[Rfam]
RNA sequence: AGCUUUGUGCAGUGGCAGUAUUGUAGCGAGUGAGGUUUAUUCAAGGCACAAUUAUUGCUAAUUGAAAACUUUUCCCAACACCCCUCUAUGAUGACUUGCAAUAUAGUCAGCACUAAUUUGACAGUCUCUACAGAGA
Numbered sequence: 001a002g003c004u005u006u007g008u009g010c011a012g013u014g015g016c017a018g019u020a021u022u023g024u025a026g027c028g029a030g031u032g033a034g035g036u037u038u039a040u041u042c043a044a045g046g047c048a049c050a051a052u053u054a055u056u057g058c059u060a061a062u063u064g065a066a067a068a069c070u071u072u073u074c075c076c077a078a079c080a081c082c083c084c085u086c087u088a089u090g091a092u093g094a095c096u097u098g099c100a101a102u103a104u105a106g107u108c109a110g111c112a113c114u115a116a117u118u119u120g121a122c123a124g125u126c127u128c129u130a131c132a133g134a135g136a
Base pairs, nucleotide, nucleotide: 020052021051022050023049024048026047027046034042035041089112090111092109093108094107095106096105125136126135127134128133

The record is a 136-nucleotide RNA sequence from Otolemur garnettii, which matches "U4 spliceosomal RNA" in Rfam. A search with the family's covariance model found it, with a score of 89 bits. For this family Rfam cites "The uRNA database" (Zwieb, Nucleic Acids Res, 1997). Its Rfam clan is "U4 clan". About the family: U4 small nuclear RNA (U4 snRNA) is a component of the major U2-dependent spliceosome.